A member of the RNA family "Molybdenum/Tungsten riboswitch aptamer (Moco RNA motif)" from Citrobacter freundii, 146 nucleotides long.

RNA sequence: GACGAGUAUAAACACUCUAGCCUCUGCACCUGGGUCAAAUGAUACGGUGCUUUGGCCGUGACAAGGCUUACAUCAGAUUGUCACCAGGGCGCAGGAAGAAAUGACUCCGCCUCCCGUAUUUGGAAAGGUGUACAUGGGCUCUCAAC
Numbered sequence: 001g002a003c004g005a006g007u008a009u010a011a012a013c014a015c016u017c018u019a020g021c022c023u024c025u026g027c028a029c030c031u032g033g034g035u036c037a038a039a040u041g042a043u044a045c046g047g048u049g050c051u052u053u054g055g056c057c058g059u060g061a062c063a064a065g066g067c068u069u070a071c072a073u074c075a076g077a078u079u080g081u082c083a084c085c086a087g088g089g090c091g092c093a094g095g096a097a098g099a100a101a102u103g104a105c106u107c108c109g110c111c112u113c114c115c116g117u118a119u120u121u122g123g124a125a126a127g128g129u130g131u132a133c134a135u136g137g138g139c140u141c142u143c144a145a146c
Base pairs, nucleotide, nucleotide: 004139012131013130014129015128017127020056021055022054026050027049028048029047030046034043035042036041058084059083060082061081062080063079064078087112088111089110090109091108093106094105097102113123114122

The match comes from Rfam's covariance-model search (96 bits).